FMN riboswitch aptamer (RFN element): a 138-nucleotide RNA sequence from Williamwhitmania taraxaci. The RFN element is a highly conserved domain that is found frequently in the 5'-untranslated regions of prokaryotic mRNAs that encode for flavin mononucleotide (FMN) biosynthesis and transport proteins. The source organism's lineage runs through Bacteria, Pseudomonadati, Bacteroidota, Williamwhitmaniaceae and Williamwhitmania.
RNA sequence: GGCCGACUUCAGGGCGAGGUGCAACUCCUCACCGGCGGUAAUUCCCACAAGGAAAGCCCGCGAGCGUUGAAUUAUCCUCAACGCAGAUUUGGUGCAACUCCAAAGCCGACGGUAUAGUCCGGAUGAAAGAAGUAAAGC
Numbered sequence: 001g002g003c004c005g006a007c008u009u010c011a012g013g014g015c016g017a018g019g020u021g022c023a024a025c026u027c028c029u030c031a032c033c034g035g036c037g038g039u040a041a042u043u044c045c046c047a048c049a050a051g052g053a054a055a056g057c058c059c060g061c062g063a064g065c066g067u068u069g070a071a072u073u074a075u076c077c078u079c080a081a082c083g084c085a086g087a088u089u090u091g092g093u094g095c096a097a098c099u100c101c102a103a104a105g106c107c108g109a110c111g112g113u114a115u116a117g118u119c120c121g122g123a124u125g126a127a128a129g130a131a132g133u134a135a136a137g138c
Stems, first nucleotide, its partner, number of pairs: 006133005017029003031118002033108002035061004056106002064084003088104005110121003